The record is a 117-nucleotide RNA sequence from Cajanus cajan, which matches "U5 spliceosomal RNA" in Rfam.
Taxonomically the source falls in Cajanus (Eukaryota, eudicotyledons, Pentapetalae, rosids).
Rfam classes the family as a spliceosomal small nuclear RNA.
Rfam's curators write: U5 RNA is a component of both types of known spliceosome. The precise function of this molecule is unknown, though it is known that the 5' loop is required for splice site selection and p220 binding, and that both the 3' stem-loop and the Sm site are important for Sm protein binding and cap methylation.
The base pairs follow the family's consensus structure, which is taken from published work.
The match comes from Rfam's covariance-model search (90 bits).
[Rfam]
Nucleotides: 117
Stems, first nucleotide, its partner, number of pairs: 003077004008067011027053008095117001098116002101113003
Number, partner (000 for none) and nucleotide at each position: 001000a002000g003077c004076c005075g006074u007000g008067u009066g010065a011064u012063a013062a014061a015060u016059a017058c018057a019000u020000a021000g022000c023000g024000a025000a026000c027053u028052a029051u030050u031049c032048u033047u034046u035000c036000g037000c038000c039000u040000u041000u042000u043000a044000c045000u046034a047033a048032a049031g050030a051029a052028u053027a054000c055000c056000g057018u058017g059016u060015g061014u062013u063012u064011g065010u066009c067008a068000c069000u070000a071000u072000a073000a074006g075005c076004g077003g078000c079000a080000u081000a082000a083000g084000c085000c086000a087000g088000u089000u090000u091000u092000u093000g094000g095117g096000a097000a098116g099115g100000g101113u102112c103111u104000u105000c106000u107000u108000a109000g110000g111103a112102g113101g114000g115099c116098c117095u